The record is a 148-nucleotide sequence from Striga asiatica, which matches "Small nucleolar RNA snoR145" in Rfam. A search with the family's covariance model found it, with a score of 76 bits. It is annotated as an H/ACA-box small nucleolar RNA. The source organism's lineage runs through Eukaryota, Embryophyta, Tracheophyta, Magnoliopsida and Striga. A reference for the family is Chen and Wu (2009), "Mining small RNA sequencing data: a new approach to identify small nucleolar RNAs in Arabidopsis", Nucleic Acids Res. Gene Ontology terms of the family: RNA processing and nucleolus.
RNA sequence: AGGCGAAGGUUCCCAGCGGAGAGGAUUGAUCUCUGUUACGAGGCCUCUCUAACAAUUUUUUUAACCUUCGCAUAGUGAUUCGGCCUUACCAAAUGGCGCCCCACUUUUUACAGUUUUGAUGCGCCUUGAACCCUUAGGCUAUAUUUAU
Number, nucleotide and partner (000 for none) at each position: 001a000002g000003g071004c070005g069006a068007a067008g066009g065010u000011u000012c021013c000014c019015a000016g000017c000018g000019g014020a000021g012022a000023g000024g049025a048026u000027u000028g000029a000030u000031c042032u041033c040034u000035g000036u000037u000038a000039c000040g033041a032042g031043g000044c000045c000046u000047c000048u025049c024050u000051a000052a000053c000054a000055a000056u000057u000058u000059u000060u000061u000062u000063a000064a000065c009066c008067u007068u006069c005070g004071c003072a000073u000074a000075g000076u000077g000078a000079u000080u000081c000082g000083g139084c138085c137086u136087u000088a134089c000090c000091a000092a000093a000094u000095g125096g124097c000098g122099c121100c000101c000102c118103a117104c000105u000106u000107u000108u000109u000110a000111c000112a000113g000114u000115u000116u000117u103118g102119a000120u000121g099122c098123g000124c096125c095126u000127u000128g000129a000130a000131c000132c000133c000134u088135u000136a086137g085138g084139c083140u000141a000142u000143a000144u000145u000146u000147a000148u000